The family of this 31-nucleotide sequence is "Iron response element II". The base pairs follow the family's consensus structure, which is taken from published work. The match comes from Rfam's covariance-model search (32 bits). Rfam 15.1 lists 5,197 matches to the family in 722 species. Rfam classes the family as a cis-regulatory element. For this family Rfam cites "The role of the iron responsive element in the control of ferroportin1/IREG1/MTP1 gene expression" (Lymboussaki et al., J Hepatol, 2003). Its family is annotated with response to iron ion in the Gene Ontology. Rfam describes the family as follows. IRE, TFRC, SLC40A1, SDHB, SLC11A2, CDC42BPA, ACO2, ALAS2_H.SAPIENS, CDC14A, EPAS1, ALAS2, qoxD, Hao1, NDUFS1, transferrin, Aconitate.
[Rfam]
RNA sequence: ACAUCAUCGUCUACAGCGCUAGACACGGUGC
Numbered sequence: 001a002c003a004u005c006a007u008c009g010u011c012u013a014c015a016g017c018g019c020u021a022g023a024c025a026c027g028g029u030g031c
Stems, first nucleotide, its partner, number of pairs: 002030004007025001009024005014018001